This 99-nucleotide RNA from Syntrophus gentianae belongs to the Rfam family "Bacterial small signal recognition particle RNA".
RNA sequence: AGCCGGGCCCCGCGCAACGAUGGCGUGUGAACCCCGUCAGGUCCGGAAGGAAGCAGCGGUAGCAAUGUCCAGCGUGUGCUGCGGAUCAGCCUGGCUAUC
Numbered sequence: 001a002g003c004c005g006g007g008c009c010c011c012g013c014g015c016a017a018c019g020a021u022g023g024c025g026u027g028u029g030a031a032c033c034c035c036g037u038c039a040g041g042u043c044c045g046g047a048a049g050g051a052a053g054c055a056g057c058g059g060u061a062g063c064a065a066u067g068u069c070c071a072g073c074g075u076g077u078g079c080u081g082c083g084g085a086u087c088a089g090c091c092u093g094g095c096u097a098u099c
Base pairs, nucleotide, nucleotide: 004093005092006091007090008089010084011083012082013081014080015076017075018074019073021071022070026064027063028062034059035058036057037056042051043050044049

It is annotated as a non-coding RNA gene. Gene Ontology terms of the family: signal recognition particle, plasma membrane targeting and SRP-dependent cotranslational protein targeting to membrane, signal sequence recognition. Pairs were carried over by alignment from the consensus structure, which is taken from published work. The organism belongs to Syntrophus, within Bacteria. Its Rfam clan is "SRP clan".